This 69-nucleotide RNA sequence from Caenimonas koreensis belongs to the Rfam family "ilvH RNA". The family's consensus secondary structure is taken from published work. Taxonomically the source falls in Caenimonas koreensis (Bacteria, Betaproteobacteria, Comamonadaceae, Caenimonas). A search with the family's covariance model found it, with a score of 82 bits.

[Rfam]
RNA sequence: GACGAAUCUAUUGGCUUGCCAAGCCGCCCGGUUACCGCCGGGCGGGGAGGGCACCGAAAAGAGGAAUCG
Number, nucleotide and partner (000 for none) at each position: 001g000002a000003c000004g000005a000006a000007u000008c000009u000010a000011u057012u056013g055014g000015c000016u000017u053018g052019c051020c050021a000022a000023g000024c045025c044026g043027c042028c041029c040030g039031g038032u037033u000034a000035c000036c000037g032038c031039c030040g029041g028042g027043c026044g025045g024046g000047g000048a000049g000050g020051g019052c018053a017054c000055c013056g012057a011058a000059a000060a000061g000062a000063g000064g000065a000066a000067u000068c000069g000